[Rfam]
RNA sequence: CCACGGUGGUGGCUGGGGACAACCCCAUGGGGGCAGCUGG
Numbered sequence: 001c002c003a004c005g006g007u008g009g010u011g012g013c014u015g016g017g018g019a020c021a022a023c024c025c026c027a028u029g030g031g032g033g034c035a036g037c038u039g040g
Base pairs, nucleotide, nucleotide: 001030002029003028005026006025